[Rfam]
About this RNA:
Rhodo-rpoB RNA: a 95-nucleotide RNA from Allosediminivita pacifica. The base pairs follow the family's consensus structure, which is taken from published work. It is annotated as a cis-regulatory element. Lineage of the source: Bacteria > Pseudomonadati > Rhodobacterales > Paracoccaceae > Allosediminivita.
RNA sequence: GAAUCGGGAGGCGCCUGGUGGGACGGGCGCCAGGAAUGGAUUCCCCCGUUAUGCCAUCUCGGAUGGACCGGCGGCUGGUGCCCGACAGCCGUGGU
Numbered sequence: 001g002a003a004u005c006g007g008g009a010g011g012c013g014c015c016u017g018g019u020g021g022g023a024c025g026g027g028c029g030c031c032a033g034g035a036a037u038g039g040a041u042u043c044c045c046c047c048g049u050u051a052u053g054c055c056a057u058c059u060c061g062g063a064u065g066g067a068c069c070g071g072c073g074g075c076u077g078g079u080g081c082c083c084g085a086c087a088g089c090c091g092u093g094g095u
Stems, first nucleotide, its partner, number of pairs: 001043005010031008069094001071092007